[Rfam]
The record is a 74-nucleotide sequence from Drosophila simulans, which matches "Small nucleolar RNA CD11" in Rfam. By type it is a C/D-box small nucleolar RNA. The base pairs follow the family's consensus structure, which was predicted with ILM. Its family is annotated with nucleolus and RNA processing in the Gene Ontology.
RNA sequence: AUUCGAAUUCCACAGGAUUGAUUUAGCAGAAGAGUUCUUGAAGACUAUAUUCAUCACCCAAAACUGAAAACAUA
Number, nucleotide and partner (000 for none) at each position: 001a000002u070003u069004c000005g000006a000007a000008u000009u000010c000011c000012a000013c000014a000015g000016g000017a000018u000019u000020g000021a000022u000023u000024u000025a000026g000027c000028a000029g037030a036031a035032g000033a000034g000035u031036u030037c029038u000039u000040g000041a000042a000043g000044a000045c000046u000047a000048u000049a000050u000051u000052c000053a000054u000055c000056a000057c000058c000059c000060a000061a000062a000063a000064c000065u000066g000067a000068a000069a003070a002071c000072a000073u000074a000